Annotation:
The record is a 126-nucleotide RNA sequence from Gossypium harknessii, which matches "mir-393 microRNA precursor family" in Rfam. Pairs were carried over by alignment from the consensus structure. NCBI's taxonomy places the organism under Eukaryota, Streptophytina, Pentapetalae, rosids, Gossypium. On this family, see Kruszka et al., J Plant Physiol 2012: "Role of microRNAs and other sRNAs of plants in their changing environments".
[Rfam]
RNA sequence: GGUGGAGAGCUCCAAAGGGAUCGCAUUGAUCUAAUGUUGAUAUGGAUUGUUGAAUCAAGUGUCAUGGUAUAGUCAUUUGUUGAUUAGUUUGCUCAUUGGAUCAUGCGAUCCCUUCGGAAUUUUCCA
Numbered sequence: 001g002g003u004g005g006a007g008a009g010c011u012c013c014a015a016a017g018g019g020a021u022c023g024c025a026u027u028g029a030u031c032u033a034a035u036g037u038u039g040a041u042a043u044g045g046a047u048u049g050u051u052g053a054a055u056c057a058a059g060u061g062u063c064a065u066g067g068u069a070u071a072g073u074c075a076u077u078u079g080u081u082g083a084u085u086a087g088u089u090u091g092c093u094c095a096u097u098g099g100a101u102c103a104u105g106c107g108a109u110c111c112c113u114u115c116g117g118a119a120u121u122u123u124c125c126a
Base pairs, nucleotide, nucleotide: 003126004125005124006123008121009120011118012117013116015114016113017112018111019110020109021108023106024105025104026103028102029101030100031099032098036094
Dot-bracket structure: ..((((.((.(((.(((((((.((((.(((((...(.........................................................)...))))))))).))))))).))).)).))))
Overview:
It scores 83 bits against the family's covariance model.